RNA sequence: UGCCUUUGUGUUACCCAUUCAUUCCUGUCCAGAAUGAAUGUGGUGUCAUAAAAGGCAAACAGGAAUCUUGCUCAUACUCUUUAAGGAGCUGGUUAUUUACCUUUCUCCUCCCUGUUUUCGCAAGGACAAAA
Number, nucleotide and partner (000 for none) at each position: 001u000002g056003c055004c054005u053006u052007u051008g000009u048010g047011u000012u045013a044014c043015c042016c040017a039018u038019u037020c036021a035022u034023u033024c000025c000026u000027g000028u000029c000030c000031a000032g000033a023034a022035u021036g020037a019038a018039u017040g016041u000042g015043g014044u013045g012046u000047c010048a009049u000050a000051a007052a006053a005054g004055g003056c002057a000058a000059a000060c000061a000062g000063g000064a000065a000066u000067c124068u123069u122070g121071c120072u000073c000074a117075u000076a116077c000078u000079c000080u000081u000082u114083a113084a000085g111086g110087a106088g105089c000090u000091g101092g100093u000094u000095a000096u000097u000098u000099a000100c092101c091102u000103u000104u000105c088106u087107c000108c000109u000110c086111c085112c000113u083114g082115u000116u076117u074118u000119c000120g071121c070122a069123a068124g067125g000126a000127c000128a000129a000130a000131a000

Small nucleolar RNA SNORA13: a 131-nucleotide RNA from Baryphthengus martii.
Its family is annotated with nucleolus and RNA processing in the Gene Ontology.
The family is grouped with related families in Rfam's "SNORA13 clan".
A search with the family's covariance model found it, with a score of 72 bits.
ACA13 is a member of the H/ACA class of snoRNA that guide the sites of modification of uridines to pseudouridines.